[Rfam]
RNA sequence: GGAGGUUGAGGUCCUCACUGGGAGGCAGGAAGAGAAUCCAAGGAAAGCUGACUUGGUGGCCCCUCCUCUGUCCCCACAGGACUUUGGCCUAG
Numbered sequence: 001g002g003a004g005g006u007u008g009a010g011g012u013c014c015u016c017a018c019u020g021g022g023a024g025g026c027a028g029g030a031a032g033a034g035a036a037u038c039c040a041a042g043g044a045a046a047g048c049u050g051a052c053u054u055g056g057u058g059g060c061c062c063c064u065c066c067u068c069u070g071u072c073c074c075c076a077c078a079g080g081a082c083u084u085u086g087g088c089c090u091a092g
Base pairs, nucleotide, nucleotide: 003090004089005088006087007086008085009084010083011082012081013080014079015078019076020075021074022073025071026070027069028068030067032065033064034063037058038056039055040054041053042052
Dot-bracket structure: ..(((((((((((((...((((..((((.(.(((..((((((.........))))).)....))).))))).)))).)))))))))))))..